The family of this 71-nucleotide RNA sequence from Ophiophagus hannah is "mir-221 microRNA precursor family". The sequence is in the family's curated seed alignment. The family has 72 seed sequences and 1,797 matches in Rfam 15.1. The family's consensus secondary structure was predicted with RNAalifold. For this family Rfam cites "MicroRNA profile of Marek's disease virus-transformed T-cell line MSB-1: predominance of virus-encoded microRNAs" (Yao et al., J Virol, 2008). Gene Ontology terms of the family: miRNA-mediated post-transcriptional gene silencing and RISC complex.

RNA sequence: ACAGGCUGCUCAGUAGUUGGUGUAGGAUCUGUUUGAUAAUACCAACAGCUACAUCUGAUUACUGGGUUUCU
Number, nucleotide and partner (000 for none) at each position: 001a000002c000003a000004g000005g000006c000007u000008g000009c000010u065011c064012a063013g062014u061015a060016g000017u058018u057019g056020g054021u053022g052023u051024a050025g049026g000027a000028u000029c048030u047031g046032u045033u000034u000035g000036a000037u000038a000039a000040u000041a000042c000043c000044a000045a032046c031047a030048g029049c025050u024051a023052c022053a021054u020055c000056u019057g018058a017059u000060u015061a014062c013063u012064g011065g010066g000067u000068u000069u000070c000071u000